[Rfam]
RNA: Small nucleolar RNA SNORD35
RNA sequence: UGCAAGUGAUGCUUUUCUCACGAUGGUCUUCCAAGCCCGCAGGGUUCUGACGACAACGCCUUUUUUGGCAAAACUGAUGCAGUUAG
Numbered sequence: 001u002g003c004a005a006g007u008g009a010u011g012c013u014u015u016u017c018u019c020a021c022g023a024u025g026g027u028c029u030u031c032c033a034a035g036c037c038c039g040c041a042g043g044g045u046u047c048u049g050a051c052g053a054c055a056a057c058g059c060c061u062u063u064u065u066u067g068g069c070a071a072a073a074c075u076g077a078u079g080c081a082g083u084u085a086g
Base pairs, nucleotide, nucleotide: 001081002080003079004078